Rfam assigns this 96-nucleotide RNA from Leucothrix pacifica to the family "t44 RNA". The base pairs follow the family's consensus structure, which was predicted with LocARNA. The match comes from Rfam's covariance-model search (74 bits). The organism belongs to Leucothrix, within Bacteria.

RNA sequence: CAUUUUUUGUCCCUAAUACUCACACAAAUCGUCACGUCUGGCAGGGUGCUAAAAACGAUGUUUUUGGUUGGCAGAUGGGGUUUGUGGAGGCCUAAC
Numbered sequence: 001c002a003u004u005u006u007u008u009g010u011c012c013c014u015a016a017u018a019c020u021c022a023c024a025c026a027a028a029u030c031g032u033c034a035c036g037u038c039u040g041g042c043a044g045g046g047u048g049c050u051a052a053a054a055a056c057g058a059u060g061u062u063u064u065u066g067g068u069u070g071g072c073a074g075a076u077g078g079g080g081u082u083u084g085u086g087g088a089g090g091c092c093u094a095a096c
Base pairs, nucleotide, nucleotide: 023086024085025084026083027082028081029080030079035077036076037075038074039073040072042070043069048068049067050066051065052064